This 129-nucleotide RNA sequence from Octodon degus belongs to the Rfam family "Small nucleolar RNA SNORA65".
On this family, see Huttenhofer et al., EMBO J 2001: "RNomics: an experimental approach that identifies 201 candidates for novel, small, non-messenger RNAs in mouse".
About the family: U65 belongs to the H/ACA class of snoRNAs which are thought to guide the sites of modification of uridines to pseudouridines.

RNA sequence: CCCACCACUGCACCUGACCUGUUCUCCACUGGCUGGUGCAAUCCAGUGGUGAGCUGAUAGUAACCCCAGUUUAGGAAACAGUGUUGUUCUUCAUGUAGGCGAAUCUGUGCUGAUAGCAUGGGAACAGCC
Numbered sequence: 001c002c003c004a005c006c007a008c009u010g011c012a013c014c015u016g017a018c019c020u021g022u023u024c025u026c027c028a029c030u031g032g033c034u035g036g037u038g039c040a041a042u043c044c045a046g047u048g049g050u051g052a053g054c055u056g057a058u059a060g061u062a063a064c065c066c067c068a069g070u071u072u073a074g075g076a077a078a079c080a081g082u083g084u085u086g087u088u089c090u091u092c093a094u095g096u097a098g099g100c101g102a103a104u105c106u107g108u109g110c111u112g113a114u115a116g117c118a119u120g121g122g123a124a125c126a127g128c129c
Stems, first nucleotide, its partner, number of pairs: 005049006017037003021033001022031001065122004069117003074111002079107003084102001087099002